[Rfam]
RNA sequence: AAGACAACCAGGAGUCUAUAAAAUAAUCACUGAUGAGACUGGACGAAACUUCUGCUAUAUGCAGGAGUCUGUU
Numbered sequence: 001a002a003g004a005c006a007a008c009c010a011g012g013a014g015u016c017u018a019u020a021a022a023a024u025a026a027u028c029a030c031u032g033a034u035g036a037g038a039c040u041g042g043a044c045g046a047a048a049c050u051u052c053u054g055c056u057a058u059a060u061g062c063a064g065g066a067g068u069c070u071g072u073u
Stems, first nucleotide, its partner, number of pairs: 002017004008042004025073002028071002037044001048068008

This 73-nucleotide sequence belongs to the Rfam family "RAGATH-1 hammerhead ribozyme". Rfam links the family to the GO term RNA nuclease activity.